[Rfam]
RNA: Iron response element I
Organism: Polypterus senegalus
RNA sequence: AGUUCCUGCUUCAACAGUGAUUGAAUGGAACUCA
Numbered sequence: 001a002g003u004u005c006c007u008g009c010u011u012c013a014a015c016a017g018u019g020a021u022u023g024a025a026u027g028g029a030a031c032u033c034a
Stems, first nucleotide, its partner, number of pairs: 001032006008026001010025005015019001